Source information
This 117-nucleotide RNA sequence from Myotis lucifugus belongs to the Rfam family "Small nucleolar RNA SNORA33". The match comes from Rfam's covariance-model search (76 bits). From the family's description: ACA33 is a member of the H/ACA class of snoRNA that guide the sites of modification of uridines to pseudouridines. It is annotated as an H/ACA-box small nucleolar RNA. The family's consensus secondary structure was predicted with PFOLD.

RNA sequence: AAGAAUUUAUAUAAAUUUAUUGAUCUUAAACUUAAAUGAAGUGAUUUCAGUAAACUAGCCAUGUUACAAGCCUUAAAGACAUUGAAGUCAUUAAGGUCCCUGAAAAUGGCUAUAAGA
Number, nucleotide and partner (000 for none) at each position: 001a000002a000003g000004a000005a000006u030007u029008u028009a027010u000011a000012u000013a000014a000015a000016u000017u000018u000019a000020u000021u000022g000023a000024u000025c000026u000027u009028a008029a007030a006031c000032u000033u000034a000035a000036a000037u000038g000039a000040a000041g000042u000043g000044a000045u000046u000047u000048c000049a000050g000051u000052a000053a000054a000055c000056u000057a000058g110059c109060c108061a107062u000063g000064u000065u000066a000067c000068a000069a000070g097071c096072c095073u094074u093075a092076a091077a000078g089079a088080c087081a000082u000083u000084g000085a000086a000087g080088u079089c078090a000091u076092u075093a074094a073095g072096g071097u070098c000099c000100c000101u000102g000103a000104a000105a000106a000107u061108g060109g059110c058111u000112a000113u000114a000115a000116g000117a000

Lineage of the source: Eukaryota > Eumetazoa > Craniata > Boreoeutheria > Myotis.